[Rfam]
RNA sequence: AAGCAACACUCUGUGGCAGAUGAGCAAAACUGUCUGACACAAUUUGCGCUUGCUAUAGUAAGAAAGUCUAACCUAUUCCGGUGUUUUCUUCCUCAGUGGGACAAGCCGUUAUAUAGACUUAAACAUU
Number, nucleotide and partner (000 for none) at each position: 001a000002a000003g000004c000005a000006a000007c000008a000009c048010u000011c046012u041013g040014u039015g038016g000017c036018a035019g034020a033021u032022g031023a000024g000025c000026a000027a000028a000029a000030c000031u022032g021033u020034c019035u018036g017037a000038c015039a014040c013041a012042a000043u000044u000045u000046g011047c000048g009049c000050u000051u000052g000053c000054u000055a000056u000057a000058g000059u000060a000061a000062g000063a000064a120065a119066g118067u117068c116069u115070a114071a000072c000073c000074u113075a112076u111077u000078c000079c108080g107081g106082u105083g000084u000085u000086u000087u101088c100089u099090u098091c000092c000093u000094c000095a000096g000097u000098g090099g089100g088101a087102c000103a000104a000105g082106c081107c080108g079109u000110u000111a076112u075113a074114u070115a069116g068117a067118c066119u065120u064121a000122a000123a000124c000125a000126u000127u000
The record is a 127-nucleotide RNA sequence from Loxodonta africana, which matches "Small nucleolar RNA SNORA28" in Rfam. Rfam classes the family as an H/ACA-box small nucleolar RNA. About the family: ACA28 is a member of the H/ACA class of snoRNA that guide the sites of modification of uridines to pseudouridines. The family's consensus secondary structure was predicted with RNAfold. The source organism's lineage runs through Eukaryota, Opisthokonta, Amniota, Mammalia and Loxodonta. The sequence is in the family's curated seed alignment. Its Rfam clan is "SNORA28 clan". On this family, see Huttenhofer et al., EMBO J 2001: "RNomics: an experimental approach that identifies 201 candidates for novel, small, non-messenger RNAs in mouse". Its family is annotated with RNA processing and nucleolus in the Gene Ontology.